Nucleotides: 129
Base pairs, nucleotide, nucleotide: 001058002057003056004055005054006053007052008051009050015045016044017043018042019041020040023038024037025036026035066126068125069124070123072121073120074119083112084111085110086109087108088106089105090104091103092102
Number, partner (000 for none) and nucleotide at each position: 001058c002057c003056c004055u005054g006053c007052a008051u009050u010000c011000g012000a013000a014000a015045g016044u017043g018042a019041u020040c021000a022000c023038g024037g025036c026035c027000c028000c029000g030000c031000c032000u033000g034000u035026g036025g037024c038023c039000g040020g041019g042018u043017c044016a045015u046000c047000g048000a049000u050009a051008g052007u053006g054005c055004a056003g057002g058001g059000a060000g061000a062000g063000g064000a065000g066126c067000g068125c069124g070123a071000g072121a073120g074119c075000u076000u077000u078000c079000c080000c081000g082000u083112g084111u085110u086109u087108g088106g089105g090104g091103g092102g093000g094000u095000c096000u097000c098000u099000g100000u101000c102092c103091c104090c105089c106088u107000c108087c109086a110085a111084a112083c113000c114000c115000u116000g117000u118000u119074g120073c121072u122000g123070u124069c125068g126066g127000a128000c129000a

The family of this 129-nucleotide RNA sequence from Pachyramphus minor is "Small nucleolar RNA SNORA71". The base pairs follow the family's consensus structure, which was predicted with PFOLD. The source organism's lineage runs through Eukaryota, Bilateria, Passeriformes, Tyrannidae and Pachyramphus. From the family's description: The members of this family belong to the H/ACA class of snoRNAs which bind a number of proteins (including dyskerin, Gar1p and Nop10p) to form snoRNP complexes. This class of snoRNAs are thought to guide the sites of modification of uridines to pseudouridines by forming direct base pairing interactions with substrate RNAs. This family includes U71 (SNORA71), ACA39 (SNORA39) and ACA60 (SNORA60). U71 and ACA60 are predicted to guide the pseudouridylation of U406 and U1004 in 18S rRNA respectively. There is currently no target RNA identified for ACA39. The family has 40 seed sequences and 1,805 matches in Rfam 15.1. A search with the family's covariance model found it, with a score of 106 bits. Rfam links the family to the GO terms nucleolus and RNA processing.